Rfam assigns this 93-nucleotide sequence from Macaca mulatta to the family "mir-638 microRNA precursor family". Gene Ontology terms of the family: RISC complex and miRNA-mediated post-transcriptional gene silencing. The family's consensus secondary structure was predicted with RNAalifold. On this family, see Yue et al., BMC Genomics 2008: "Identification of novel homologous microRNA genes in the rhesus macaque genome". The sequence is in the family's curated seed alignment.

[Rfam]
RNA sequence: GGCGCGGCAGGGAUCGCGGGCGGGCGGCGGCCUAGGGUGCGGAGGGCGGACCGGGAAUGGCGCUCCCUGCGCCGCCGGCGUAACUGCGGCGCU
Numbered sequence: 001g002g003c004g005c006g007g008c009a010g011g012g013a014u015c016g017c018g019g020g021c022g023g024g025c026g027g028c029g030g031c032c033u034a035g036g037g038u039g040c041g042g043a044g045g046g047c048g049g050a051c052c053g054g055g056a057a058u059g060g061c062g063c064u065c066c067c068u069g070c071g072c073c074g075c076c077g078g079c080g081u082a083a084c085u086g087c088g089g090c091g092c093u
Base pairs, nucleotide, nucleotide: 001093002092003091004090005089007087008086009085010084013081015080016079017078019076020075021074022073023072024070025069026066027065029063030061031060032059035052036051038048039047040046